[Rfam]
Shown here is an 85-nucleotide RNA from Amycolatopsis sp. FDAARGOS 1241, a member of the family "ZMP/ZTP riboswitch aptamer (pfl RNA motif)". The organism belongs to Amycolatopsis, within Bacteria. A search with the family's covariance model found it, with a score of 46 bits.
RNA sequence: CGGGCCGGCCGCGACUGGCGAGGGUGGACGACCACCGGGGAGCGGCCGUGACCGGACGCGAGCGUCGACCGCCUGGGCGCCUCCG
Numbered sequence: 001c002g003g004g005c006c007g008g009c010c011g012c013g014a015c016u017g018g019c020g021a022g023g024g025u026g027g028a029c030g031a032c033c034a035c036c037g038g039g040g041a042g043c044g045g046c047c048g049u050g051a052c053c054g055g056a057c058g059c060g061a062g063c064g065u066c067g068a069c070c071g072c073c074u075g076g077g078c079g080c081c082u083c084c085g
Stems, first nucleotide, its partner, number of pairs: 006048007015039002017073004024035004062080005